The family of this 119-nucleotide RNA is "Betaproteobacteria-1 RNA". It is annotated as a small RNA. Rfam's curators put it in the seed alignment.
[Rfam]
RNA sequence: CGCGCGCCGGGACGGGGACUACACACCAGCAGGCGCGGGAUAGUCGUACUGGGGGAAAGGUCUUGAGAUACGACAGGGGGCGGCGAAGCUAGCACCCCCAGACCGGAUGGCUGGCGGGC
Numbered sequence: 001c002g003c004g005c006g007c008c009g010g011g012a013c014g015g016g017g018a019c020u021a022c023a024c025a026c027c028a029g030c031a032g033g034c035g036c037g038g039g040a041u042a043g044u045c046g047u048a049c050u051g052g053g054g055g056a057a058a059g060g061u062c063u064u065g066a067g068a069u070a071c072g073a074c075a076g077g078g079g080g081c082g083g084c085g086a087a088g089c090u091a092g093c094a095c096c097c098c099c100a101g102a103c104c105g106g107a108u109g110g111c112u113g114g115c116g117g118g119c
Stems, first nucleotide, its partner, number of pairs: 001039001003037006010030001026052004043074006060103004076099005088115006